[Rfam]
RNA sequence: UGCGGUCCUCGGUAGUGGCCUCCGGAGUCCCCAGCGGAUUCCGUGGGCCUCGAUCGAAGACCGAG
Numbered sequence: 001u002g003c004g005g006u007c008c009u010c011g012g013u014a015g016u017g018g019c020c021u022c023c024g025g026a027g028u029c030c031c032c033a034g035c036g037g038a039u040u041c042c043g044u045g046g047g048c049c050u051c052g053a054u055c056g057a058a059g060a061c062c063g064a065g
Stems, first nucleotide, its partner, number of pairs: 001065001003063005009057005017049005023043007
This 65-nucleotide RNA sequence from Rothia santali belongs to the Rfam family "Actino-pnp RNA". The organism belongs to Rothia, within Bacteria. The match comes from Rfam's covariance-model search (68 bits). Pairs were carried over by alignment from the consensus structure, which is taken from published work.